[Rfam]
RNA sequence: UUCCACAGCUACUGGUCUGCAGCUGUUUUUAUACUAGCAGUUGUGGCAUUCCUCUGUGGGAAAGUGUUACACAAUUAAACACCUCUUUCUUAGCAAAACAGAAGAUGGGCAUAUAUGUAACAGACACAA
Numbered sequence: 001u002u003c004c005a006c007a008g009c010u011a012c013u014g015g016u017c018u019g020c021a022g023c024u025g026u027u028u029u030u031a032u033a034c035u036a037g038c039a040g041u042u043g044u045g046g047c048a049u050u051c052c053u054c055u056g057u058g059g060g061a062a063a064g065u066g067u068u069a070c071a072c073a074a075u076u077a078a079a080c081a082c083c084u085c086u087u088u089c090u091u092a093g094c095a096a097a098a099c100a101g102a103a104g105a106u107g108g109g110c111a112u113a114u115a116u117g118u119a120a121c122a123g124a125c126a127c128a129a
Stems, first nucleotide, its partner, number of pairs: 003059004017046009069118003073114001082109003086104005